[Rfam]
RNA sequence: ACGACCUUACUUGAACAGGAUCUGUUCUAUAGGCUCGUACCUCUGUAUCCUUGAGUUCUAAGGAGACAGGAACCUACGUCUGGUGGAUGAACCAUGACCAUGAGAUCAGAGCGUGAUUAACGGCCUGAUGAGCUUCCCUGUGGAGGUGUGUCGUCUGGGGGCCGUAGAGGAUCGUUCUCUGGACAGUUACCGUCUGAGAUGGUCUCAUGGUUGUCUGACAGACC
Numbered sequence: 001a002c003g004a005c006c007u008u009a010c011u012u013g014a015a016c017a018g019g020a021u022c023u024g025u026u027c028u029a030u031a032g033g034c035u036c037g038u039a040c041c042u043c044u045g046u047a048u049c050c051u052u053g054a055g056u057u058c059u060a061a062g063g064a065g066a067c068a069g070g071a072a073c074c075u076a077c078g079u080c081u082g083g084u085g086g087a088u089g090a091a092c093c094a095u096g097a098c099c100a101u102g103a104g105a106u107c108a109g110a111g112c113g114u115g116a117u118u119a120a121c122g123g124c125c126u127g128a129u130g131a132g133c134u135u136c137c138c139u140g141u142g143g144a145g146g147u148g149u150g151u152c153g154u155c156u157g158g159g160g161g162c163c164g165u166a167g168a169g170g171a172u173c174g175u176u177c178u179c180u181g182g183a184c185a186g187u188u189a190c191c192g193u194c195u196g197a198g199a200u201g202g203u204c205u206c207a208u209g210g211u212u213g214u215c216u217g218a219c220a221g222a223c224c
Stems, first nucleotide, its partner, number of pairs: 001038002003035001005033003013027006043069004048064006078223005097211012110176004120165006127155005178197002182194003186190001
Notes: Rfam assigns this 224-nucleotide RNA sequence from Cajanus cajan to the family "Plant small nucleolar RNA U3". Rfam describes the family as follows. Small nucleolar RNAs (snoRNAs) are involved in the processing and modification of rRNA in the nucleolus. There are two main classes of snoRNAs: the box C/D class, and the box H/ACA class.